[Rfam]
RNA sequence: AGCGUGUAGCCGUAAGGCAACCUGACCACGAUGCAGAAGUCAGCAGACGGCAUAGUAGAUCAGGCAGUCGGUGAGGUUCGUGAGGCACUCCAAGGUC
Numbered sequence: 001a002g003c004g005u006g007u008a009g010c011c012g013u014a015a016g017g018c019a020a021c022c023u024g025a026c027c028a029c030g031a032u033g034c035a036g037a038a039g040u041c042a043g044c045a046g047a048c049g050g051c052a053u054a055g056u057a058g059a060u061c062a063g064g065c066a067g068u069c070g071g072u073g074a075g076g077u078u079c080g081u082g083a084g085g086c087a088c089u090c091c092a093a094g095g096u097c
Stems, first nucleotide, its partner, number of pairs: 002026001004023001006021002009018003039048003049097003058090002067086003
The record is a 97-nucleotide RNA from Candidatus Entotheonella gemina, which matches "Group II catalytic intron D1-D4-1" in Rfam. Group II introns are found in rRNA, tRNA and mRNA of organelles in fungi, plants and protists, and also in mRNA in bacteria. A search with the family's covariance model found it, with a score of 42 bits. The source organism's lineage runs through Bacteria, Candidatus Tectimicrobiota, Candidatus Entotheonellales, Candidatus Entotheonellaceae and Candidatus Entotheonella.